[Rfam]
RNA sequence: GCAGCAAGGGUGGUCUCAACCUGGGUUCAUUCCCCAGCUAAUAAAGUUCGAUUCUUUGUAGCGGCU
Numbered sequence: 001g002c003a004g005c006a007a008g009g010g011u012g013g014u015c016u017c018a019a020c021c022u023g024g025g026u027u028c029a030u031u032c033c034c035c036a037g038c039u040a041a042u043a044a045a046g047u048u049c050g051a052u053u054c055u056u057u058g059u060a061g062c063g064g065c066u
Stems, first nucleotide, its partner, number of pairs: 001065002004062002007059001011018002021037005042058005
Description: tRNA: a 66-nucleotide sequence from Paramecium primaurelia. The family's consensus secondary structure is taken from published work. Rfam describes the family as follows. Transfer RNA (tRNA) molecules are approximately 80 nucleotides in length. It is one of the family's seed sequences. It is annotated as a transfer RNA.